A member of the RNA family "TPP riboswitch aptamer (THI element)" from Micromonospora krabiensis, 111 nucleotides long.
NCBI's taxonomy places the organism under Bacteria, Bacillati, Actinomycetes, Micromonosporaceae, Micromonospora.

RNA sequence: CCGAGUACCCACGGGAGCCCGGUGGACCGGGCUGAGAGGGGGGCUGUUCGCCCCCGACCGUCGAACCUGAUCCGGGUAAUGCCGGCGCAGGGAGGAGUGUUGCCGUGCCGU
Numbered sequence: 001c002c003g004a005g006u007a008c009c010c011a012c013g014g015g016a017g018c019c020c021g022g023u024g025g026a027c028c029g030g031g032c033u034g035a036g037a038g039g040g041g042g043g044c045u046g047u048u049c050g051c052c053c054c055c056g057a058c059c060g061u062c063g064a065a066c067c068u069g070a071u072c073c074g075g076g077u078a079a080u081g082c083c084g085g086c087g088c089a090g091g092g093a094g095g096a097g098u099g100u101u102g103c104c105g106u107g108c109c110g111u
Stems, first nucleotide, its partner, number of pairs: 006099003010095001011061004017032005039055005066091004072085004